[Rfam]
RNA sequence: AUAAUGAUACUUCCGAAGAUAAGCUGCUUCGGUCCGAGAGGAUGGUGAGAUUCCAAUGA
Numbered sequence: 001a002u003a004a005u006g007a008u009a010c011u012u013c014c015g016a017a018g019a020u021a022a023g024c025u026g027c028u029u030c031g032g033u034c035c036g037a038g039a040g041g042a043u044g045g046u047g048a049g050a051u052u053c054c055a056a057u058g059a
Base pairs, nucleotide, nucleotide: 012056013032014031015030016029017028018027033042034041035040043055044054045053
pemK RNA: a 59-nucleotide sequence. It is annotated as a cis-regulatory element. It is one of the family's seed sequences.